[Rfam]
Overview
A member of the RNA family "THF-II riboswitch (folE RNA)", 41 nucleotides long. On this family, see Xu et al., Nucleic Acids Res 2023: "Structural insights into translation regulation by the THF-II riboswitch".
RNA sequence: CCGUUCAACUCGCCCCUCCCCGGACGAGGGGCGUACGGGAG
Numbered sequence: 001c002c003g004u005u006c007a008a009c010u011c012g013c014c015c016c017u018c019c020c021c022g023g024a025c026g027a028g029g030g031g032c033g034u035a036c037g038g039g040a041g
Base pairs, nucleotide, nucleotide: 001038002037003036004035012032013031014030015029016028017027018026
Pairs were carried over by alignment from the consensus structure, which is taken from published work.